The family of this 126-nucleotide RNA sequence from Actinocatenispora sera is "SAM riboswitch aptamer (S box leader)".
The source organism's lineage runs through Bacteria, Actinomycetes, Micromonosporales, Micromonosporaceae and Actinocatenispora.
Nucleotides: 126
Stems, first nucleotide, its partner, number of pairs: 003124006013042005021031003025093004043085004048081002051077003089118001094115006
Number, partner (000 for none) and nucleotide at each position: 001000a002000c003124c004123u005122c006121a007120u008119c009000c010000a011000g012000a013042g014041g015040g016039g017038c018000u019000g020000a021031g022030g023029g024000a025093c026092c027091g028090g029023c030022c031021c032000g033000a034000u035000g036000a037000c038017g039016c040015c041014c042013c043085g044084g045083c046082a047000a048081c049080c050000a051077c052076c053075g054000c055000a056000g057000c058000u059000c060000g061000c062000g063000c064000u065000c066000g067000a068000c069000g070000c071000g072000a073000g074000c075053c076052g077051g078000c079000a080049g081048g082046u083045g084044c085043c086000a087000a088000u089118u090028c091027c092026g093025g094115c095114c096113c097112g098111c099110g100000a101000c102000c103000a104000g105000a106000c107000c108000g109000g110099c111098g112097c113096g114095g115094g116000a117000a118089a119008g120007a121006u122005g123004a124003g125000c126000g